[Rfam]
RNA sequence: AUAUUAGAUAGAGGCGCAGUGUUCAUGAGUAAAACUUCAACAAACGUUAAGGUGACGGAAGCGGAAAGGGAACAUUGCCGAAGCUGAGUUUCUCUGCCUUGGGGGUGCUUGGCUGGCGCAUUAUAAAAUAUAUAAUGUGCUGUCACUUUAGUGGAGCGCUAUCGGGAAC
Numbered sequence: 001a002u003a004u005u006a007g008a009u010a011g012a013g014g015c016g017c018a019g020u021g022u023u024c025a026u027g028a029g030u031a032a033a034a035c036u037u038c039a040a041c042a043a044a045c046g047u048u049a050a051g052g053u054g055a056c057g058g059a060a061g062c063g064g065a066a067a068g069g070g071a072a073c074a075u076u077g078c079c080g081a082a083g084c085u086g087a088g089u090u091u092c093u094c095u096g097c098c099u100u101g102g103g104g105g106u107g108c109u110u111g112g113c114u115g116g117c118g119c120a121u122u123a124u125a126a127a128a129u130a131u132a133u134a135a136u137g138u139g140c141u142g143u144c145a146c147u148u149u150a151g152u153g154g155a156g157c158g159c160u161a162u163c164g165g166g167a168a169c
Stems, first nucleotide, its partner, number of pairs: 007163005016078009035061004082114008091105003115141011143154004